Annotation: Shown here is a 347-nucleotide RNA sequence from Dentipellis fragilis, a member of the family "RNase MRP".
[Rfam]
RNA sequence: GCGCCGUGCAAAGAAUCGUCGUCGCAGCACACACACAGGGGGCCUCGCGCCCCUCCUUUCCAGCUGUGGGGAAAGUCCCCGGAGGCGCAGACUGCACGCCUGGCGCCGAAGUGGAAAGCGGCCGCCUCUAAUCGGGCGGGACGUGCGCCGGGCCUCAGCUGUUCUCGCUCCUUCCUGCUUUCGUUGGGGGGUGCUGGCAGCAUGGGGGUCUGCAGCUCGGAGCUUGGUCAUUCAACGCGAAGAUACGAGCGGACUGGGCUUCGGGCACUGUUGCUCAUAGACAUAGUUAUGCGAUUGCUGUGCCGUUCGCGGCGCGGUAACACAAUGGGGCUCACUCUCGCACGGCG
Numbered sequence: 001g002c003g004c005c006g007u008g009c010a011a012a013g014a015a016u017c018g019u020c021g022u023c024g025c026a027g028c029a030c031a032c033a034c035a036c037a038g039g040g041g042g043c044c045u046c047g048c049g050c051c052c053c054u055c056c057u058u059u060c061c062a063g064c065u066g067u068g069g070g071g072a073a074a075g076u077c078c079c080c081g082g083a084g085g086c087g088c089a090g091a092c093u094g095c096a097c098g099c100c101u102g103g104c105g106c107c108g109a110a111g112u113g114g115a116a117a118g119c120g121g122c123c124g125c126c127u128c129u130a131a132u133c134g135g136g137c138g139g140g141a142c143g144u145g146c147g148c149c150g151g152g153c154c155u156c157a158g159c160u161g162u163u164c165u166c167g168c169u170c171c172u173u174c175c176u177g178c179u180u181u182c183g184u185u186g187g188g189g190g191g192u193g194c195u196g197g198c199a200g201c202a203u204g205g206g207g208g209u210c211u212g213c214a215g216c217u218c219g220g221a222g223c224u225u226g227g228u229c230a231u232u233c234a235a236c237g238c239g240a241a242g243a244u245a246c247g248a249g250c251g252g253a254c255u256g257g258g259c260u261u262c263g264g265g266c267a268c269u270g271u272u273g274c275u276c277a278u279a280g281a282c283a284u285a286g287u288u289a290u291g292c293g294a295u296u297g298c299u300g301u302g303c304c305g306u307u308c309g310c311g312g313c314g315c316g317g318u319a320a321c322a323c324a325a326u327g328g329g330g331c332u333c334a335c336u337c338u339c340g341c342a343c344g345g346c347g
Base pairs, nucleotide, nucleotide: 002347003346004345005344006343007342008341009340011338014296015295016294017293018292019291022069023068024067025066026065027064028063038053039052040051041050074332075331077330078329079328080327211267212266213265218263219262220261221260222259223258224257225256226255227254236251237250238249298317299316300315301314302313303312

By type it is a ribozyme. It scores 107 bits against the family's covariance model. Its family is annotated with ribonuclease MRP complex, ribonuclease MRP activity and rRNA processing in the Gene Ontology. The family's consensus secondary structure is taken from published work. Rfam's curators write: RNase MRP is an enzymatically active ribonucleoprotein with two distinct roles in eukaryotes.